RNA sequence: CCGAGGCGGACGCCGAGUCCUGCCACCGCAUCGGGUCACGACCGCUGGCAGGAGCGGGGGAACCACUUCCCGGCCCGUCCCAGGACGGACCUUGGGGUGAAGCCGACGCGGCGCGGGUGACCGUGCGCGCCGGCCGGGUAGACCUCUGACCCGAACCCGACAGCUCACCUCGUAGGCGUUGGAGAGGUUCACA
Number, nucleotide and partner (000 for none) at each position: 001c000002c000003g000004a000005g000006g000007c000008g000009g000010a000011c178012g177013c176014c175015g000016a000017g000018u053019c052020c051021u050022g049023c048024c047025a046026c000027c000028g000029c000030a000031u000032c000033g000034g000035g000036u000037c000038a000039c000040g000041a000042c000043c000044g000045c000046u025047g024048g023049c022050a021051g020052g019053a018054g173055c172056g171057g170058g169059g168060g000061a000062a000063c000064c094065a093066c000067u000068u000069c000070c000071c000072g000073g000074c000075c000076c000077g000078u000079c000080c000081c000082a000083g000084g000085a000086c000087g000088g000089a000090c000091c000092u000093u065094g064095g158096g157097g156098u000099g000100a000101a000102g000103c133104c132105g131106a000107c000108g000109c000110g000111g000112c000113g000114c000115g000116g000117g000118u000119g000120a000121c000122c000123g000124u000125g000126c000127g000128c000129g000130c000131c105132g104133g103134c000135c000136g152137g151138g150139u149140a000141g000142a000143c000144c000145u000146c000147u000148g000149a139150c138151c137152c136153g000154a000155a000156c097157c096158c095159g000160a000161c000162a000163g000164c000165u000166c000167a000168c059169c058170u057171c056172g055173u054174a000175g014176g013177c012178g011179u000180u000181g000182g000183a000184g000185a000186g000187g000188u000189u000190c000191a000192c000193a000

Shown here is a 193-nucleotide sequence from Nostocoides japonicum, a member of the family "c-di-AMP riboswitch aptamer (ydaO/yuaA leader)". Its family is annotated with regulation of gene expression and cyclic-di-AMP binding in the Gene Ontology. About the family: This family represents a conserved RNA structure found upstream of the ydaO and yuaA genes in Bacillus subtilis and related genes in other bacteria.